[Rfam]
RNA sequence: UGAUAGCGAUGAAGCGAGAGAUUGCCGGAACAGGCAAUAGCAUGUUUCGGGUUACUCCGUGGAGCGAAUGUCUGGGGCGCCUGCAGGACCUGGUGGGCACGCCCAACAAUCUGACGACAA
Number, nucleotide and partner (000 for none) at each position: 001u000002g000003a000004u000005a000006g000007c000008g000009a000010u000011g000012a000013a000014g060015c059016g058017a000018g057019a056020g055021a053022u000023u000024g000025c050026c049027g048028g047029a046030a045031c044032a043033g000034g000035c000036a000037a000038u000039a000040g000041c000042a000043u032044g031045u030046u029047u028048c027049g026050g025051g000052u000053u021054a000055c020056u019057c018058c016059g015060u014061g000062g000063a000064g000065c000066g000067a000068a000069u119070g118071u117072c116073u000074g000075g115076g000077g000078c000079g000080c000081c000082u000083g000084c000085a000086g000087g000088a000089c000090c000091u000092g000093g000094u000095g000096g000097g000098c000099a000100c000101g000102c000103c000104c000105a000106a000107c000108a000109a000110u000111c000112u000113g000114a000115c075116g072117a071118c070119a069120a000

This 120-nucleotide RNA from Firmicutes bacterium CAG:791 belongs to the Rfam family "S10-Clostridia ribosomal protein leader". The family's RNA type in Rfam is cis-regulatory leader. A search with the family's covariance model found it, with a score of 54 bits.